[Rfam]
RNA sequence: GUUCACGAGCUGCAGCGUCAAGUACCCGGCUGGCUGCACGGCAACCCUCCUGAUCGAGCGGGGUGCCCCGGGGCGAGAACCGGUGGUGCGUCACGGUGGCGCCCACAAGUCGGCC
Numbered sequence: 001g002u003u004c005a006c007g008a009g010c011u012g013c014a015g016c017g018u019c020a021a022g023u024a025c026c027c028g029g030c031u032g033g034c035u036g037c038a039c040g041g042c043a044a045c046c047c048u049c050c051u052g053a054u055c056g057a058g059c060g061g062g063g064u065g066c067c068c069c070g071g072g073g074c075g076a077g078a079a080c081c082g083g084u085g086g087u088g089c090g091u092c093a094c095g096g097u098g099g100c101g102c103c104c105a106c107a108a109g110u111c112g113g114c115c
Stems, first nucleotide, its partner, number of pairs: 001080004009039001011038006021031002040067003045063003049058001083106004088102006

The record is a 115-nucleotide sequence from Cellulomonas fimi, which matches "SAM (S-adenosyl methionine) riboswitch aptamer" in Rfam.
Taxonomically the source falls in Cellulomonas fimi (Bacteria, Actinomycetota, Cellulomonadaceae, Cellulomonas).
A search with the family's covariance model found it, with a score of 71 bits.
The family's consensus secondary structure is taken from published work.